Nucleotides: 228
Base pairs, nucleotide, nucleotide: 001153002152003151004150005149015143016142017141018140027132028131029130031129032128033127037053038052039051040050041049054114055113056112057111058110059109060108154169155168156167157166
Number, partner (000 for none) and nucleotide at each position: 001153g002152a003151c004150g005149a006000u007000a008000a009000a010000c011000u012000g013000c014000g015143c016142c017141g018140u019000a020000c021000a022000a023000u024000a025000g026000a027132c028131g029130c030000a031129g032128c033127g034000g035000a036000c037053c038052c039051g040050g041049g042000g043000g044000c045000g046000g047000u048000a049041c050040c051039c052038g053037g054114c055113g056112g057111c058110u059109c060108c061000a062000c063000c064000a065000c066000c067000a068000u069000c070000a071000c072000c073000g074000c075000g076000c077000u078000c079000c080000a081000c082000g083000a084000c085000a086000g087000g088000g089000a090000g091000g092000c093000g094000g095000c096000g097000g098000u099000g100000u101000u102000g103000a104000u105000g106000a107000c108060g109059g110058g111057g112056c113055c114054g115000a116000a117000c118000u119000a120000g121000g122000a123000u124000c125000g126000a127033c128032g129031u130029g131028u132027g133000u134000u135000g136000a137000a138000a139000a140018g141017c142016g143015g144000u145000g146000u147000u148000u149005u150004c151003g152002u153001c154169c155168g156167g157166g158000c159000u160000g161000a162000g163000u164000a165000a166157c167156c168155c169154g170000u171000u172000a173000a174000a175000g176000g177000c178000u179000c180000a181000a182000a183000a184000c185000u186000c187000a188000u189000a190000a191000g192000u193000g194000c195000c196000a197000a198000c199000g200000a201000c202000a203000a204000c205000g206000a207000a208000g209000c210000a211000c212000u213000u214000g215000c216000u217000c218000u219000c220000g221000c222000c223000g224000c225000g226000u227000a228000a